[Rfam]
Rfam assigns this 131-nucleotide RNA sequence from Mauremys mutica to the family "Small nucleolar RNA U109". Its family is annotated with RNA processing and nucleolus in the Gene Ontology. It scores 93 bits against the family's covariance model. The family's consensus secondary structure was predicted with WAR. Rfam 15.1 lists 1,405 matches to the family in 622 species.

RNA sequence: CUGCAUGAUGGAAGCCAUCAUUAUUUCAUCAAAGGAGAAUGAACAUAUUCCUUGCAUGCUACAGAAAAUGAGUUUUCAGGGCUGCCAGUCUUGGAGUAAAGGCUGAGUGGUAGUGUAUUUCUCCUACAUUA
Numbered sequence: 001c002u003g004c005a006u007g008a009u010g011g012a013a014g015c016c017a018u019c020a021u022u023a024u025u026u027c028a029u030c031a032a033a034g035g036a037g038a039a040u041g042a043a044c045a046u047a048u049u050c051c052u053u054g055c056a057u058g059c060u061a062c063a064g065a066a067a068a069u070g071a072g073u074u075u076u077c078a079g080g081g082c083u084g085c086c087a088g089u090c091u092u093g094g095a096g097u098a099a100a101g102g103c104u105g106a107g108u109g110g111u112a113g114u115g116u117a118u119u120u121c122u123c124c125u126a127c128a129u130u131a
Base pairs, nucleotide, nucleotide: 003059004058005057006056007055016041017040018039021036022035070123071122072121081111082110085107086105087104088103089102090101091100092099